[Rfam]
RNA sequence: GGGGGAGCGCCGGAUCUUGGGCAGUGUCCCCUGGCACCUUGGGCUCCUGGGCCUGCACUGUUGGAAUCCCGCUCCCGGCCAACAGUUCCCU
Numbered sequence: 001g002g003g004g005g006a007g008c009g010c011c012g013g014a015u016c017u018u019g020g021g022c023a024g025u026g027u028c029c030c031c032u033g034g035c036a037c038c039u040u041g042g043g044c045u046c047c048u049g050g051g052c053c054u055g056c057a058c059u060g061u062u063g064g065a066a067u068c069c070c071g072c073u074c075c076c077g078g079c080c081a082a083c084a085g086u087u088c089c090c091u
Stems, first nucleotide, its partner, number of pairs: 001091006009083001012080002016078002019075003024070001026068001027065002031063001032060003037055001041053001043052003